About this RNA:
Shown here is an 82-nucleotide RNA sequence from Phyllostomus discolor, a member of the family "Small nucleolar RNA SNORD24". By type it is a C/D-box small nucleolar RNA. A search with the family's covariance model found it, with a score of 49 bits. The base pairs follow the family's consensus structure, which was predicted with PFOLD. Rfam 15.1 lists 2,843 matches to the family in 1,188 species. On this family, see Kiss-Laszlo et al., Cell 1996: "Site-specific ribose methylation of preribosomal RNA: a novel function for small nucleolar RNAs". Rfam links the family to the GO terms RNA processing and nucleolus.

[Rfam]
RNA sequence: UGCCACAAUGAUGACAUUUUAUUUGCUACUCUUGACUGGGAGGAUGACGAGAAGUAUUACCACCAUUAUCCUAACUGAGGCA
Numbered sequence: 001u002g003c004c005a006c007a008a009u010g011a012u013g014a015c016a017u018u019u020u021a022u023u024u025g026c027u028a029c030u031c032u033u034g035a036c037u038g039g040g041a042g043g044a045u046g047a048c049g050a051g052a053a054g055u056a057u058u059a060c061c062a063c064c065a066u067u068a069u070c071c072u073a074a075c076u077g078a079g080g081c082a
Stems, first nucleotide, its partner, number of pairs: 001082004

Source information
The source organism's lineage runs through Eukaryota, Craniata, Mammalia, Phyllostomidae and Phyllostomus.